[Rfam]
RNA sequence: UGUUAAAAAUUCCAUCCAUUUAUACGGUUAAAGUAUAGUGUGAUUGACAGAAUAACCAAACAGUGAUACAGGAGAGCCAUAUGUACCACAUGAUAAUGUACAACGAAUAUUUUUUACCAAUAGAAAUGGAUGAAAAUUUUAACA
Numbered sequence: 001u002g003u004u005a006a007a008a009a010u011u012c013c014a015u016c017c018a019u020u021u022a023u024a025c026g027g028u029u030a031a032a033g034u035a036u037a038g039u040g041u042g043a044u045u046g047a048c049a050g051a052a053u054a055a056c057c058a059a060a061c062a063g064u065g066a067u068a069c070a071g072g073a074g075a076g077c078c079a080u081a082u083g084u085a086c087c088a089c090a091u092g093a094u095a096a097u098g099u100a101c102a103a104c105g106a107a108u109a110u111u112u113u114u115u116a117c118c119a120a121u122a123g124a125a126a127u128g129g130a131u132g133a134a135a136a137u138u139u140u141a142a143c144a
Base pairs, nucleotide, nucleotide: 002143003142004141005140006139007138008137010135011134013132014131015130016129018127019126020125021124023122024121029116030115031114032113033112